[Rfam]
RNA sequence: UGCCCAAUGAUGACACCAUCCUUGCUCCCCGUGCCCCCAGGGGCUAUGGGCGACACCUUGGCUGCCCUUGGGCUGGGCCGGCUGGGCCGUUGCCUGGGGGCUGAGGGCA
Numbered sequence: 001u002g003c004c005c006a007a008u009g010a011u012g013a014c015a016c017c018a019u020c021c022u023u024g025c026u027c028c029c030c031g032u033g034c035c036c037c038c039a040g041g042g043g044c045u046a047u048g049g050g051c052g053a054c055a056c057c058u059u060g061g062c063u064g065c066c067c068u069u070g071g072g073c074u075g076g077g078c079c080g081g082c083u084g085g086g087c088c089g090u091u092g093c094c095u096g097g098g099g100g101c102u103g104a105g106g107g108c109a
Stems, first nucleotide, its partner, number of pairs: 001109005